[Rfam]
Rfam assigns this 111-nucleotide RNA from Oryctolagus cuniculus to the family "Small nucleolar RNA SNORD90". The base pairs follow the family's consensus structure, which was predicted with RNAalifold. The family has 18 seed sequences and 545 matches in Rfam 15.1. The literature on the family includes a 2001 paper in EMBO J by Huttenhofer et al., "RNomics: an experimental approach that identifies 201 candidates for novel, small, non-messenger RNAs in mouse". Rfam links the family to the GO terms nucleolus and RNA processing. From the family's description: snoRNA HBII-295 belongs to the family of C/D snoRNAs. It is the human orthologue of the mouse MBII-295 and has no identified RNA target. The family's RNA type in Rfam is C/D-box small nucleolar RNA. The organism belongs to Oryctolagus, within Eukaryota. Rfam's curators put it in the seed alignment.
RNA sequence: AAUUAAGUUUUCCAAGUGUCUCAUGAUGAAUUUCAUAGGGCAGAUUCUGAGGUGAAAAUUUAGUUCAUCGUUGAUACCCCUACUAUGGAUUCUGAAGACACUUGAAAACCU
Numbered sequence: 001a002a003u004u005a006a007g008u009u010u011u012c013c014a015a016g017u018g019u020c021u022c023a024u025g026a027u028g029a030a031u032u033u034c035a036u037a038g039g040g041c042a043g044a045u046u047c048u049g050a051g052g053u054g055a056a057a058a059u060u061u062a063g064u065u066c067a068u069c070g071u072u073g074a075u076a077c078c079c080c081u082a083c084u085a086u087g088g089a090u091u092c093u094g095a096a097g098a099c100a101c102u103u104g105a106a107a108a109c110c111u
Stems, first nucleotide, its partner, number of pairs: 013104009030091001032089005037081004043075001046074002049071001051069006